[Rfam]
RNA sequence: GGUCACAAGUUUGAGGCCAUAGCAGAAGUCCUCAUGGUGUGACUCUGCCAGAUUCCAAUGAAUCUGUGAAUUCUGCU
Numbered sequence: 001g002g003u004c005a006c007a008a009g010u011u012u013g014a015g016g017c018c019a020u021a022g023c024a025g026a027a028g029u030c031c032u033c034a035u036g037g038u039g040u041g042a043c044u045c046u047g048c049c050a051g052a053u054u055c056c057a058a059u060g061a062a063u064c065u066g067u068g069a070a071u072u073c074u075g076c077u
Stems, first nucleotide, its partner, number of pairs: 013045003017041001021077007028040002049066007
Dot-bracket structure: ............[[[.[...(((((((((.........))].]]]...(((((((....)))))))....)))))))
The record is a 77-nucleotide RNA sequence from Crocodylus porosus, which matches "Mammalian CPEB3 ribozyme" in Rfam. NCBI's taxonomy places the organism under Eukaryota, Dipnotetrapodomorpha, Sauropsida, Sauria, Crocodylus.